This 344-nucleotide RNA sequence from Ambrosiozyma monospora belongs to the Rfam family "Nuclear RNase P". The match comes from Rfam's covariance-model search (64 bits). Clan: RNaseP clan.
[Rfam]
RNA sequence: ACAGUGAUUAGUCCGCGCAGACUCGUUUUCGAAACGGUGUACGUGUCUCCUACGCACAUACACGAACUAAUUGGCGAGUGGGAAAUUCGGUGGAAUACAUCAUCCAUCCGGCUUGUUCGCUUGACGACUGGCUGGGUUUGUUUGCUCUUGAGAGCUUAUCCUCGGCGGGAAACCGCUGGGACGUUGUCAUCAGAAAUCAUCGGUGGCAAGCACAAAUUUGCAUAUCGAAUGGGAGACAGCGCGGGUGAUUGACAUGUCUUAGUAAAAGGGCAUGUUGUUGAGUCCAAUGCGUGGAUUCAAGCUGUCCUCCGGCUUGAAAACUCGAUACCGAUCAUUACCACUGU
Dot-bracket structure: ((((....[...[.......(((((...........(((((.................)))))...........)))))........(((((.....((((..........................................((((....)))).......((((((....))))))...(((((((...........((((((.................))))))......)))))))..))))...........................................]...](((((((((.....))))))))).......)))))..........))))
The family's RNA type in Rfam is ribozyme.